RNA sequence: UAGCUGGUUAAAGUCCAGCCGUGGGAAUUCGACAGUUCACCCACGUAGCAAGAGGAAGGUGUUAAGGGUAACCUGAAGCGCUGUGUUUCCUGACAAAGGCUCAGAAAGUGAGUCGAGCAAAUCUGCGGGUUGCAACGAAA
Numbered sequence: 001u002a003g004c005u006g007g008u009u010a011a012a013g014u015c016c017a018g019c020c021g022u023g024g025g026a027a028u029u030c031g032a033c034a035g036u037u038c039a040c041c042c043a044c045g046u047a048g049c050a051a052g053a054g055g056a057a058g059g060u061g062u063u064a065a066g067g068g069u070a071a072c073c074u075g076a077a078g079c080g081c082u083g084u085g086u087u088u089c090c091u092g093a094c095a096a097a098g099g100c101u102c103a104g105a106a107a108g109u110g111a112g113u114c115g116a117g118c119a120a121a122u123c124u125g126c127g128g129g130u131u132g133c134a135a136c137g138a139a140a
Stems, first nucleotide, its partner, number of pairs: 020045005053091005058082006066073002098114006117133003
RNA: Group II catalytic intron D1-D4-4